Shown here is a 126-nucleotide RNA from Carlito syrichta, a member of the family "Small nucleolar RNA SNORA25". Rfam links the family to the GO terms nucleolus and RNA processing. Rfam 15.1 lists 1,129 matches to the family in 449 species. ACA25 is a member of the H/ACA class of snoRNA that guide the sites of modification of uridines to pseudouridines. Rfam classes the family as an H/ACA-box small nucleolar RNA.
[Rfam]
RNA sequence: UGAUCAUUUCAAAGACAGCUCAUGGGGCUGUAAAACCAAAAACUCUUAACUCUGUGACCAAGGAUUGACGUUCUCUAUAGAAUGUCAUAACACUCAACAGUGCUGUUUUCCCGAAGAGAUAUAAAU
Numbered sequence: 001u002g003a004u005c006a007u008u009u010c011a012a013a014g015a016c017a018g019c020u021c022a023u024g025g026g027g028c029u030g031u032a033a034a035a036c037c038a039a040a041a042a043c044u045c046u047u048a049a050c051u052c053u054g055u056g057a058c059c060a061a062g063g064a065u066u067g068a069c070g071u072u073c074u075c076u077a078u079a080g081a082a083u084g085u086c087a088u089a090a091c092a093c094u095c096a097a098c099a100g101u102g103c104u105g106u107u108u109u110c111c112c113g114a115a116g117a118g119a120u121a122u123a124a125a126u
Stems, first nucleotide, its partner, number of pairs: 002059001004057004014047002017044002020041001023039001026037002072119005080111001082109001087106003091102004